A member of the RNA family "FMN riboswitch aptamer (RFN element)" from Rhizobium metallidurans, 150 nucleotides long. Taxonomically the source falls in Rhizobium (Bacteria, Pseudomonadati, Alphaproteobacteria, Hyphomicrobiales).

[Rfam]
RNA sequence: GAUCAUUCUCAGGGCGGGGUGCAAUUCCCCACCGGCGGUAGGAGCGCAAGCUUGAGCCCGCGAGCGCCUUUUCACUUCAGGUGAGAAGGGUCAGCAGAUCCGGUUGAAUUCCGGAGCCGACGGUCAUAGUCCGGAUGAAAGAGAAUGAGC
Dot-bracket structure: ..((((((((......(((.......))).[[((((((.................[[))))..((............................))...(((((.......)))))]])).(((.....]]))).......))))))))..